[Rfam]
RNA: MIR159 microRNA precursor family
Organism: Malus domestica
RNA sequence: CAGUGGUGAAGAGAGCUUUCUUCAGUCCACUCAUGGGUGGCGGUAGGAUUUAAUUAGCUGCCGAGUCAUUCAUCCAAAUACUGGGUUAUUAGCAGGAUGACAUCCAGUAAAUGUGUGAAUGAAGCGGGAGACAAAUUGGAUCUUAAGCUUCCUGUACUUGGACUGAAGGGAGCUCCCUUAAUUAAUUAC
Numbered sequence: 001c002a003g004u005g006g007u008g009a010a011g012a013g014a015g016c017u018u019u020c021u022u023c024a025g026u027c028c029a030c031u032c033a034u035g036g037g038u039g040g041c042g043g044u045a046g047g048a049u050u051u052a053a054u055u056a057g058c059u060g061c062c063g064a065g066u067c068a069u070u071c072a073u074c075c076a077a078a079u080a081c082u083g084g085g086u087u088a089u090u091a092g093c094a095g096g097a098u099g100a101c102a103u104c105c106a107g108u109a110a111a112u113g114u115g116u117g118a119a120u121g122a123a124g125c126g127g128g129a130g131a132c133a134a135a136u137u138g139g140a141u142c143u144u145a146a147g148c149u150u151c152c153u154g155u156a157c158u159u160g161g162a163c164u165g166a167a168g169g170g171a172g173c174u175c176c177c178u179u180a181a182u183u184a185a186u187u188a189c
Stems, first nucleotide, its partner, number of pairs: 013175008023165007036152001058130002061127003067121004075113001